[Rfam]
The record is a 73-nucleotide RNA sequence from Scyliorhinus torazame, which matches "Mammalian CPEB3 ribozyme" in Rfam. Lineage of the source: Eukaryota > Metazoa > Chordata > Carcharhiniformes > Scyliorhinus. Its family is annotated with RNA nuclease activity in the Gene Ontology. From the family's description: The mammalian CPEB3 ribozyme is a self cleaving RNA located in the second intron of the CPEB3 gene which belongs to a family of genes regulating messenger RNA polyadenylation. The base pairs follow the family's consensus structure, which is taken from published work.
RNA sequence: CUAGAAUGAUGGCCACAGAAGGUGCGUUCAUAACGCGGCCAACCAGGUUGAGUGUCAACCUGGAAAUCCUUCC
Numbered sequence: 001c002u003a004g005a006a007u008g009a010u011g012g013c014c015a016c017a018g019a020a021g022g023u024g025c026g027u028u029c030a031u032a033a034c035g036c037g038g039c040c041a042a043c044c045a046g047g048u049u050g051a052g053u054g055u056c057a058a059c060c061u062g063g064a065a066a067u068c069c070u071u072c073c
Stems, first nucleotide, its partner, number of pairs: 011040004018072005024036003044062007